[Rfam]
Rfam assigns this 35-nucleotide RNA from Subsaximicrobium wynnwilliamsii to the family "DUF805b RNA". A search with the family's covariance model found it, with a score of 44 bits.
RNA sequence: UUAGUGGAAGCCGAAAAGCUAUAACAGAGUAGGCA
Numbered sequence: 001u002u003a004g005u006g007g008a009a010g011c012c013g014a015a016a017a018g019c020u021a022u023a024a025c026a027g028a029g030u031a032g033g034c035a
Base pairs, nucleotide, nucleotide: 002021003020004019005018010034011033012032